[Rfam]
RNA sequence: UAGAAGGAUUUGAGGAUUUAAACCUGCAUAUUUGGAGGAUUUUGAAGACUACUACAUCCAUGUUUGGAAGAUUUGAAGACUUCGACU
Numbered sequence: 001u002a003g004a005a006g007g008a009u010u011u012g013a014g015g016a017u018u019u020a021a022a023c024c025u026g027c028a029u030a031u032u033u034g035g036a037g038g039a040u041u042u043u044g045a046a047g048a049c050u051a052c053u054a055c056a057u058c059c060a061u062g063u064u065u066g067g068a069a070g071a072u073u074u075g076a077a078g079a080c081u082u083c084g085a086c087u
Stems, first nucleotide, its partner, number of pairs: 001085001003083004009077006017069003021065001025060002028057001032054001034052001036050002
MIR8024 microRNA precursor family: an 87-nucleotide sequence from Solanum commersonii. The family's consensus secondary structure was predicted with RNAalifold. Gene Ontology terms of the family: miRNA-mediated post-transcriptional gene silencing and RISC complex. NCBI's taxonomy places the organism under Eukaryota, Euphyllophyta, Spermatophyta, Solanoideae, Solanum. The family has 2 seed sequences and 661 matches in Rfam 15.1.